[Rfam]
RNA sequence: CCCUGUUGCACAACUGCUCUUAAACCGAGACCUAUAGGCAGAAUAAUACUUCGUCUCUAAUAUCCAGAAGGGAAGGGAUUUCUGGAAAUAUAGUAUCAC
Numbered sequence: 001c002c003c004u005g006u007u008g009c010a011c012a013a014c015u016g017c018u019c020u021u022a023a024a025c026c027g028a029g030a031c032c033u034a035u036a037g038g039c040a041g042a043a044u045a046a047u048a049c050u051u052c053g054u055c056u057c058u059a060a061u062a063u064c065c066a067g068a069a070g071g072g073a074a075g076g077g078a079u080u081u082c083u084g085g086a087a088a089u090a091u092a093g094u095a096u097c098a099c
Stems, first nucleotide, its partner, number of pairs: 014041005021036002027057005063086007
A member of the RNA family "PhotoRC-II RNA", 99 nucleotides long.
Rfam classes the family as a cis-regulatory element.